[Rfam]
RNA sequence: GCGGGGGACCCACACGCAGGACCGGGCCCUCGGGCCCUGGGGUGAAGCCGCAUGCGCGGCCGGGCAGCUCUCGCCCGAACCCGACAGCUAACUCCGC
Numbered sequence: 001g002c003g004g005g006g007g008a009c010c011c012a013c014a015c016g017c018a019g020g021a022c023c024g025g026g027c028c029c030u031c032g033g034g035c036c037c038u039g040g041g042g043u044g045a046a047g048c049c050g051c052a053u054g055c056g057c058g059g060c061c062g063g064g065c066a067g068c069u070c071u072c073g074c075c076c077g078a079a080c081c082c083g084a085c086a087g088c089u090a091a092c093u094c095c096g097c
Base pairs, nucleotide, nucleotide: 001097002096003095004094005093006092011039012038040082041081042080048059049058050057051056062076063075064074065073
Dot-bracket structure: ((((((....((.........................))(((.....((((....))))..((((.......))))...))).........))))))